[Rfam]
A member of the RNA family "terC RNA" from Novosphingobium aureum, 91 nucleotides long. By type it is a cis-regulatory element. Lineage of the source: Bacteria > Pseudomonadati > Pseudomonadota > Sphingomonadales > Novosphingobium.

RNA sequence: CUUGCGGGCCGGGCCCCUCUGGCGCGGCGCUUCGAAGGAUUGGCGGUUAUCCUGCCUUUUCACGAGCGCCACGUGAUGUCGGACCGCAUCG
Numbered sequence: 001c002u003u004g005c006g007g008g009c010c011g012g013g014c015c016c017c018u019c020u021g022g023c024g025c026g027g028c029g030c031u032u033c034g035a036a037g038g039a040u041u042g043g044c045g046g047u048u049a050u051c052c053u054g055c056c057u058u059u060u061c062a063c064g065a066g067c068g069c070c071a072c073g074u075g076a077u078g079u080c081g082g083a084c085c086g087c088a089u090c091g
Stems, first nucleotide, its partner, number of pairs: 006085002009082004022074003026070007